[Rfam]
RNA sequence: AUACCUUCUCGGCCUUUUGGCUAAGAUCAAGUGUAGUAUCUGUUCUUAUCAGUGUGAAAACUGGUAUCGUCUCCACGGAGGCGCUAUUUUCACAUCAAUUUGUUCUGGUGAGGGUUUAGUUGGGAGGCUCGCUUUCCACUCCCUCAGAGUCGCCUCGGACUUGCACUAUUUCCUUGAGCGGCUCACCCGUC
Numbered sequence: 001a002u003a004c005c006u007u008c009u010c011g012g013c014c015u016u017u018u019g020g021c022u023a024a025g026a027u028c029a030a031g032u033g034u035a036g037u038a039u040c041u042g043u044u045c046u047u048a049u050c051a052g053u054g055u056g057a058a059a060a061c062u063g064g065u066a067u068c069g070u071c072u073c074c075a076c077g078g079a080g081g082c083g084c085u086a087u088u089u090u091c092a093c094a095u096c097a098a099u100u101u102g103u104u105c106u107g108g109u110g111a112g113g114g115u116u117u118a119g120u121u122g123g124g125a126g127g128c129u130c131g132c133u134u135u136c137c138a139c140u141c142c143c144u145c146a147g148a149g150u151c152g153c154c155u156c157g158g159a160c161u162u163g164c165a166c167u168a169u170u171u172c173c174u175u176g177a178g179c180g181g182c183u184c185a186c187c188c189g190u191c
Stems, first nucleotide, its partner, number of pairs: 007026003011022004047066006068083006111144004117138001124135004147184006154176001157173003